Small nucleolar RNA SNORD116: an 89-nucleotide sequence from Orycteropus afer. The family's consensus secondary structure was predicted with PFOLD. The organism belongs to Orycteropus afer, within Eukaryota. Rfam classes the family as a C/D-box small nucleolar RNA. A reference for the family is Cavaille et al. (2000), "Identification of brain-specific and imprinted small nucleolar RNA genes exhibiting an unusual genomic organization", Proc Natl Acad Sci U S A.
RNA sequence: GAAUCAAUGAUGACUUCCACAUAUACAUUCCUUGGAAAUCUGAACAAGAAUGAAAAAUCACAAAUAUCUCACUCAUCAAUCUGAGGUCC
Number, nucleotide and partner (000 for none) at each position: 001g089002a000003a087004u086005c085006a000007a000008u000009g000010a000011u000012g000013a000014c000015u000016u000017c000018c000019a000020c000021a000022u000023a000024u000025a000026c052027a051028u050029u049030c048031c000032u047033u046034g045035g000036a000037a000038a000039u000040c000041u000042g000043a000044a000045c034046a033047a032048g030049a029050a028051u027052g026053a000054a000055a000056a000057a000058u000059c000060a000061c000062a000063a000064a000065u000066a000067u000068c000069u000070c000071a000072c000073u000074c000075a000076u000077c000078a000079a000080u000081c000082u000083g000084a000085g005086g004087u003088c000089c001